[Rfam]
RNA: SAM (S-adenosyl methionine) riboswitch aptamer
Organism: Arthrobacter sp. Edens01
RNA sequence: AAUCAAGAGUUCCAGCCACAGGCCCUGGCCGGCUGGGCGGCAACCCUCUCGCCGUAGCGGGGUGCUCCAGGUGACGAUUCGGCCGUUCCGGUGGAUCUCCCGGUCCGGCAAGUACAGCGC
Numbered sequence: 001a002a003u004c005a006a007g008a009g010u011u012c013c014a015g016c017c018a019c020a021g022g023c024c025c026u027g028g029c030c031g032g033c034u035g036g037g038c039g040g041c042a043a044c045c046c047u048c049u050c051g052c053c054g055u056a057g058c059g060g061g062g063u064g065c066u067c068c069a070g071g072u073g074a075c076g077a078u079u080c081g082g083c084c085g086u087u088c089c090g091g092u093g094g095a096u097c098u099c100c101c102g103g104u105c106c107g108g109c110a111a112g113u114a115c116a117g118c119g120c
Stems, first nucleotide, its partner, number of pairs: 001079004009038001011037006021030002039066003044062003048057002082109004088103004